Shown here is a 104-nucleotide sequence from Pinus taeda, a member of the family "MIR1314 microRNA precursor family".
Lineage of the source: Eukaryota > Pinopsida > Pinidae > Pinaceae > Pinus subgen. Pinus.
RNA sequence: GUUAGUUAGCUGAAGAGAUUCUUCAACAUUAGAGGCCAAUAUAGAAUAAUAUUCUUAUUCUUAAUCGGCCUUGAAUGUUAGGAGAACGUUUUCCUCUACCUAAG
Numbered sequence: 001g002u003u004a005g006u007u008a009g010c011u012g013a014a015g016a017g018a019u020u021c022u023u024c025a026a027c028a029u030u031a032g033a034g035g036c037c038a039a040u041a042u043a044g045a046a047u048a049a050u051a052u053u054c055u056u057a058u059u060c061u062u063a064a065u066c067g068g069c070c071u072u073g074a075a076u077g078u079u080a081g082g083a084g085a086a087c088g089u090u091u092u093c094c095u096c097u098a099c100c101u102a103a104g
Stems, first nucleotide, its partner, number of pairs: 002103004007098003012093005019086006025079006032072006039065002043055005